This 90-nucleotide RNA sequence from Maricaulis maris belongs to the Rfam family "Glycine riboswitch aptamer".
RNA sequence: AAACUCCCCGCGGGAGAGACCGGCGAAUAUGCCGGCGCCGAAGGCGCAACCGCCCCGGAAACGCUCAGGCCAAGGGACCGCGGGAGAGAC
Dot-bracket structure: ......(((((((......((((........)))).(((((..(((...((.....))...))))).))).......)))))))......
Numbered sequence: 001a002a003a004c005u006c007c008c009c010g011c012g013g014g015a016g017a018g019a020c021c022g023g024c025g026a027a028u029a030u031g032c033c034g035g036c037g038c039c040g041a042a043g044g045c046g047c048a049a050c051c052g053c054c055c056c057g058g059a060a061a062c063g064c065u066c067a068g069g070c071c072a073a074g075g076g077a078c079c080g081c082g083g084g085a086g087a088g089a090c
Stems, first nucleotide, its partner, number of pairs: 007084007020035004037070003040066002044064003050058002

Rfam describes the family as follows. This family represents the bacterial glycine riboswitch.